[Rfam]
RNA: Plastid-ccsA-ndhD-2 3UTR RNA
RNA sequence: UUGUGAGAACCUUUUGAAUCAAGUAGUAGAAUGAUUCAAAAGGUUCUUGAUGGUU
Numbered sequence: 001u002u003g004u005g006a007g008a009a010c011c012u013u014u015u016g017a018a019u020c021a022a023g024u025a026g027u028a029g030a031a032u033g034a035u036u037c038a039a040a041a042g043g044u045u046c047u048u049g050a051u052g053g054u055u
Stems, first nucleotide, its partner, number of pairs: 004049018